[Rfam]
RNA sequence: UCAGAAGUUUGAGGCCAUAGCACAAGUGUUCACAGGGUGGCCAUGUCAGAUUCAAAAGAUUCUGCAAAUUCUGCU
Numbered sequence: 001u002c003a004g005a006a007g008u009u010u011g012a013g014g015c016c017a018u019a020g021c022a023c024a025a026g027u028g029u030u031c032a033c034a035g036g037g038u039g040g041c042c043a044u045g046u047c048a049g050a051u052u053c054a055a056a057a058g059a060u061u062c063u064g065c066a067a068a069u070u071c072u073g074c075u
Stems, first nucleotide, its partner, number of pairs: 013042004019075004024070002026038002047064004052059002
Notes: Mammalian CPEB3 ribozyme: a 75-nucleotide RNA from Crocodylus porosus. The family's consensus secondary structure is taken from published work. Rfam describes the family as follows. The mammalian CPEB3 ribozyme is a self cleaving RNA located in the second intron of the CPEB3 gene which belongs to a family of genes regulating messenger RNA polyadenylation. This ribozyme is highly conserved and found only in mammals. The CPEB3 ribozyme is structurally and biochemically related to the human hepatitis delta virus (HDV) ribozyme and the HDV ribozyme is proposed to have arisen from the human transcriptome.